About this RNA: Shown here is a 301-nucleotide part of an RNA from candidate division MSBL1 archaeon SCGC-AAA382K21, a member of the family "Archaeal large subunit ribosomal RNA". Gene Ontology terms of the family: ribosome and structural constituent of ribosome. For this family Rfam cites "The comparative RNA web (CRW) site: an online database of comparative sequence and structure information for ribosomal, intron, and other RNAs" (Cannone et al., BMC Bioinformatics, 2002).

[Rfam]
RNA sequence: GGAUGCCUGAGGGCAGGGUAGCUUCAGUACGAGAGGAACGAGCUGCCGGCGCCUCUAGUGUACCGGUUGUCCGAUAGGGCAUAGCCGGGUAGCCACGCGCCAGCCAAUAAGGCCUGAAAGCAUCUAAGGCUGAAGUGGUCCCCGAAAAUAGGCAUCCGAUCUUGACGAAAAUGCCGGGACUGGUGACAGUCACGGUACGUCAGGACAAAGGCAGGGGCUAGAAGACCCCGUUGAUGGGCCGGGGGUGUACGCACGAAGCUUCGGCGACGUGUUCAGCCCACCGGUACCAAUAGCCUGAGGU
Numbered sequence: 001g002g003a004u005g006c007c008u009g010a011g012g013g014c015a016g017g018g019u020a021g022c023u024u025c026a027g028u029a030c031g032a033g034a035g036g037a038a039c040g041a042g043c044u045g046c047c048g049g050c051g052c053c054u055c056u057a058g059u060g061u062a063c064c065g066g067u068u069g070u071c072c073g074a075u076a077g078g079g080c081a082u083a084g085c086c087g088g089g090u091a092g093c094c095a096c097g098c099g100c101c102a103g104c105c106a107a108u109a110a111g112g113c114c115u116g117a118a119a120g121c122a123u124c125u126a127a128g129g130c131u132g133a134a135g136u137g138g139u140c141c142c143c144g145a146a147a148a149u150a151g152g153c154a155u156c157c158g159a160u161c162u163u164g165a166c167g168a169a170a171a172u173g174c175c176g177g178g179a180c181u182g183g184u185g186a187c188a189g190u191c192a193c194g195g196u197a198c199g200u201c202a203g204g205a206c207a208a209a210g211g212c213a214g215g216g217g218c219u220a221g222a223a224g225a226c227c228c229c230g231u232u233g234a235u236g237g238g239c240c241g242g243g244g245g246u247g248u249a250c251g252c253a254c255g256a257a258g259c260u261u262c263g264g265c266g267a268c269g270u271g272u273u274c275a276g277c278c279c280a281c282c283g284g285u286a287c288c289a290a291u292a293g294c295c296u297g298a299g300g301u
Stems, first nucleotide, its partner, number of pairs: 001157008011143003017047008048101005056095001058093001063088005068081005104138003111131005209296004214229004235289003238285005243279003251272005258265001